[Rfam]
RNA sequence: UAAUAUGAUGAUUACCAUUACCAAUAAGCAUAGUUCAACUGAAAUCUUCGGAUUGCUGAACGACAACCUUCUACCAUCUUUCACCCCUAUCUGAUA
Number, nucleotide and partner (000 for none) at each position: 001u000002a000003a000004u000005a000006u020007g019008a018009u017010g016011a000012u000013u000014a000015c000016c010017a009018u008019u007020a006021c000022c000023a000024a000025u000026a000027a000028g000029c000030a000031u000032a000033g061034u060035u059036c058037a057038a000039c000040u000041g000042a000043a054044a053045u052046c051047u000048u000049c000050g000051g046052a045053u044054u043055g000056c000057u037058g036059a035060a034061c033062g000063a000064c000065a000066a000067c000068c000069u000070u000071c000072u000073a000074c000075c000076a000077u000078c000079u000080u000081u000082c000083a000084c000085c000086c000087c000088u000089a000090u000091c000092u000093g000094a000095u000096a000

Notes: Shown here is a 96-nucleotide RNA from Aspergillus fumigatus, a member of the family "A. fumigatus snoRNA Afu_263". Lineage of the source: Eukaryota > Fungi > Eurotiomycetes > Aspergillaceae > Aspergillus fumigatus. The family's RNA type in Rfam is C/D-box small nucleolar RNA. The sequence is in the family's curated seed alignment. Pairs were carried over by alignment from the consensus structure.